[Rfam]
RNA sequence: CUCUGGAGAGUUUCUCUUAAUGAGAACACCAAAGGGGAAGGACUGACGAAGUCUAAUCUCUCAGGUUAAAGGACAGAG
Numbered sequence: 001c002u003c004u005g006g007a008g009a010g011u012u013u014c015u016c017u018u019a020a021u022g023a024g025a026a027c028a029c030c031a032a033a034g035g036g037g038a039a040g041g042a043c044u045g046a047c048g049a050a051g052u053c054u055a056a057u058c059u060c061u062c063a064g065g066u067u068a069a070a071g072g073a074c075a076g077a078g
Stems, first nucleotide, its partner, number of pairs: 001078005012026004028066003032061001035060003041053002
Notes: The record is a 78-nucleotide RNA from Desulfosporosinus cupriresistens, which matches "Glycine riboswitch aptamer" in Rfam. The base pairs follow the family's consensus structure.